[Rfam]
RNA sequence: UAGCCAGCCCAUUAAUCCGCUUACCUGAAUGGUCCUGCAGACAUUUAGAAAAAACUGGCAAUGGUAAGACCACAUUACAAACCUUAAAGAUUACUCAGGUCUUUUAAGACCAUUGAAAAUGGCCACAAUA
Numbered sequence: 001u002a003g004c005c006a007g008c009c010c011a012u013u014a015a016u017c018c019g020c021u022u023a024c025c026u027g028a029a030u031g032g033u034c035c036u037g038c039a040g041a042c043a044u045u046u047a048g049a050a051a052a053a054a055c056u057g058g059c060a061a062u063g064g065u066a067a068g069a070c071c072a073c074a075u076u077a078c079a080a081a082c083c084u085u086a087a088a089g090a091u092u093a094c095u096c097a098g099g100u101c102u103u104u105u106a107a108g109a110c111c112a113u114u115g116a117a118a119a120u121g122g123c124c125a126c127a128a129u130a
Stems, first nucleotide, its partner, number of pairs: 003059005016041002019038002070122003083108005089101003
Record summary: This 130-nucleotide RNA from Mus spicilegus belongs to the Rfam family "Small nucleolar RNA SNORA33". The organism belongs to Mus, within Eukaryota. ACA33 is a member of the H/ACA class of snoRNA that guide the sites of modification of uridines to pseudouridines.